The family of this 86-nucleotide RNA from Papaver somniferum is "mir-156 microRNA precursor family". Lineage of the source: Eukaryota > Viridiplantae > Streptophytina > Euphyllophyta > Papaver. The base pairs follow the family's consensus structure, which was predicted with PFOLD. Rfam's curators write: This family represents the plant microRNA (miRNA) precursor mir-156.

[Rfam]
RNA sequence: GUGACAGAAGAGAGUGAGCACACAUGGUUUUCUUGUAUGAAUGUUCCCAUGCUAGAAUCUAUGCGUGCUUACUCUCUAUCUAUCAC
Numbered sequence: 001g002u003g004a005c006a007g008a009a010g011a012g013a014g015u016g017a018g019c020a021c022a023c024a025u026g027g028u029u030u031u032c033u034u035g036u037a038u039g040a041a042u043g044u045u046c047c048c049a050u051g052c053u054a055g056a057a058u059c060u061a062u063g064c065g066u067g068c069u070u071a072c073u074c075u076c077u078a079u080c081u082a083u084c085a086c
Base pairs, nucleotide, nucleotide: 001086002085003084004083006081007080008079010076011075012074013073014072015071016070017069018068019067020066021065023063024062025061